The family of this 223-nucleotide RNA from Sarcina sp. DSM 11001 is "Bacterial large signal recognition particle RNA".
RNA sequence: CGGAAUCUUUUGACUAUAGUAUACAAAGCAUCCCCGCCGGGGGAUGGAGUUUUGAAAGCUGCCUGUCUGCACGCAUGGGUUCGGGUCUCGCGCAAUGGAAACCUGUGAACCGUGUCAGGAUGGGAACAUAGCAGCACUAAGCGGGAUCUUUCAUGUGCCGCGAGGGUGCCUGGCUCUGUGGCCGGCAGGCAGCUUUCAGCGCUUCAUCCCGGCGGGGAUUUCC
Numbered sequence: 001c002g003g004a005a006u007c008u009u010u011u012g013a014c015u016a017u018a019g020u021a022u023a024c025a026a027a028g029c030a031u032c033c034c035c036g037c038c039g040g041g042g043g044a045u046g047g048a049g050u051u052u053u054g055a056a057a058g059c060u061g062c063c064u065g066u067c068u069g070c071a072c073g074c075a076u077g078g079g080u081u082c083g084g085g086u087c088u089c090g091c092g093c094a095a096u097g098g099a100a101a102c103c104u105g106u107g108a109a110c111c112g113u114g115u116c117a118g119g120a121u122g123g124g125a126a127c128a129u130a131g132c133a134g135c136a137c138u139a140a141g142c143g144g145g146a147u148c149u150u151u152c153a154u155g156u157g158c159c160g161c162g163a164g165g166g167u168g169c170c171u172g173g174c175u176c177u178g179u180g181g182c183c184g185g186c187a188g189g190c191a192g193c194u195u196u197c198a199g200c201g202c203u204u205c206a207u208c209c210c211g212g213c214g215g216g217g218a219u220u221u222c223c
Stems, first nucleotide, its partner, number of pairs: 002223004006218002008028004033216006041210006048203003052199006061193002065190006073182002075179001078176002081173006087164006093155002096153005102145005112137004120129003
A search with the family's covariance model found it, with a score of 109 bits. Pairs were carried over by alignment from the consensus structure, which is taken from published work.